[Rfam]
RNA sequence: CAACGGUAUAUGCCGAGUUCCCUAACCAUUAGGGAAACGGGGGAACCACUUUGGGUGAAUUGACCUCCUGUUCGAAGAGGGGUCAUAGGGGACCUUCAACCGAACCCUUAAGCUAACCUCGUAGGCAUUGGAAGGGGUUUAC
Numbered sequence: 001c002a003a004c005g006g007u008a009u010a011u012g013c014c015g016a017g018u019u020c021c022c023u024a025a026c027c028a029u030u031a032g033g034g035a036a037a038c039g040g041g042g043g044a045a046c047c048a049c050u051u052u053g054g055g056u057g058a059a060u061u062g063a064c065c066u067c068c069u070g071u072u073c074g075a076a077g078a079g080g081g082g083u084c085a086u087a088g089g090g091g092a093c094c095u096u097c098a099a100c101c102g103a104a105c106c107c108u109u110a111a112g113c114u115a116a117c118c119u120c121g122u123a124g125g126c127a128u129u130g131g132a133a134g135g136g137g138u139u140u141a142c
Stems, first nucleotide, its partner, number of pairs: 011127004018036006037122006053107003061085007088101002
RNA: c-di-AMP riboswitch aptamer (ydaO/yuaA leader)
Organism: Paenibacillus agri